Small nucleolar RNA SNORA44: a 129-nucleotide sequence from Salmo salar. A search with the family's covariance model found it, with a score of 62 bits. Rfam classes the family as an H/ACA-box small nucleolar RNA. Pairs were carried over by alignment from the consensus structure, which was predicted with PFOLD. Lineage of the source: Eukaryota > Chordata > Euteleostomi > Neopterygii > Salmo.
RNA sequence: CGGCUAUCCUAAGGACCCUGGCUCUGUCUGUAGCCUCUGGUUCUCCAAGUGCAGGCCAGAGUACCGGGGGAGUCUUUGACUGUCCUGGCCUCUCCGUGCCUGAGGCAGCCACUCAACUGUCCUACACAU
Numbered sequence: 001c002g003g004c005u006a007u008c009c010u011a012a013g014g015a016c017c018c019u020g021g022c023u024c025u026g027u028c029u030g031u032a033g034c035c036u037c038u039g040g041u042u043c044u045c046c047a048a049g050u051g052c053a054g055g056c057c058a059g060a061g062u063a064c065c066g067g068g069g070g071a072g073u074c075u076u077u078g079a080c081u082g083u084c085c086u087g088g089c090c091u092c093u094c095c096g097u098g099c100c101u102g103a104g105g106c107a108g109c110c111a112c113u114c115a116a117c118u119g120u121c122c123u124a125c126a127c128a129u
Base pairs, nucleotide, nucleotide: 009039014035016033019030020029067122068121069120071118072117082109083108085102087100088099